A member of the RNA family "mir-3 microRNA precursor family" from Drosophila albomicans, 68 nucleotides long. The base pairs follow the family's consensus structure, which was predicted with RNAalifold. Its Rfam clan is "mir-3 clan". A search with the family's covariance model found it, with a score of 72 bits.
RNA sequence: AUUAUAUGGUAAACUUUGUUCAGUUUUGCCAACUUGUGUGCAUCACUGGGUGAAGUUUGUCGUAUAAU
Numbered sequence: 001a002u003u004a005u006a007u008g009g010u011a012a013a014c015u016u017u018g019u020u021c022a023g024u025u026u027u028g029c030c031a032a033c034u035u036g037u038g039u040g041c042a043u044c045a046c047u048g049g050g051u052g053a054a055g056u057u058u059g060u061c062g063u064a065u066a067a068u
Stems, first nucleotide, its partner, number of pairs: 005064010017052003021048004